Shown here is a 96-nucleotide RNA sequence from Aquilegia coerulea, a member of the family "Plastid-rps12 3UTR RNA". Pairs were carried over by alignment from the consensus structure, which was predicted with LocARNA. Lineage of the source: Eukaryota > Streptophytina > Magnoliopsida > Ranunculales > Aquilegia. The match comes from Rfam's covariance-model search (102 bits). For this family Rfam cites "Retrograde signaling in plants: A critical review focusing on the GUN pathway and beyond" (Richter et al., Plant Commun, 2023). From the family's description: Plastid rpl20 is a non-coding RNA (ncRNA) recognised in plastids. It was found in the three prime untranslated region (3UTR) of rps12 gene, its 3UTR location sugest a role in transcript maduration.

[Rfam]
RNA sequence: GGUUUCUUUUGGUGCAAAUCCAAUCACCUUAAUUGGAGAUGGGAAGCAAUUUCCCAUGGGUAGCAAAUGGUUACCUAUUAAGCGGGGGAAUAGUAU
Numbered sequence: 001g002g003u004u005u006c007u008u009u010u011g012g013u014g015c016a017a018a019u020c021c022a023a024u025c026a027c028c029u030u031a032a033u034u035g036g037a038g039a040u041g042g043g044a045a046g047c048a049a050u051u052u053c054c055c056a057u058g059g060g061u062a063g064c065a066a067a068u069g070g071u072u073a074c075c076u077a078u079u080a081a082g083c084g085g086g087g088g089a090a091u092a093g094u095a096u
Stems, first nucleotide, its partner, number of pairs: 009023004052087004056078002059075006